[Rfam]
RNA sequence: GGUUCAAGUGAUGAUGAGAAACUGCAACAAUAUGACAGGAGUUACACUCCCGUGAUUCGUAGUUUAAAGUCUGAUGAUU
Numbered sequence: 001g002g003u004u005c006a007a008g009u010g011a012u013g014a015u016g017a018g019a020a021a022c023u024g025c026a027a028c029a030a031u032a033u034g035a036c037a038g039g040a041g042u043u044a045c046a047c048u049c050c051c052g053u054g055a056u057u058c059g060u061a062g063u064u065u066a067a068a069g070u071c072u073g074a075u076g077a078u079u
Stems, first nucleotide, its partner, number of pairs: 001079002004077003038050004
Dot-bracket structure: ((.(((...............................((((.....))))........................)))))

Rfam assigns this 79-nucleotide sequence from Triticum turgidum to the family "Small nucleolar RNA Z199". The family's RNA type in Rfam is C/D-box small nucleolar RNA. The match comes from Rfam's covariance-model search (62 bits). The literature on the family includes a 2003 paper in Nucleic Acids Res by Chen et al., "The high diversity of snoRNAs in plants: identification and comparative study of 120 snoRNA genes from Oryza sativa".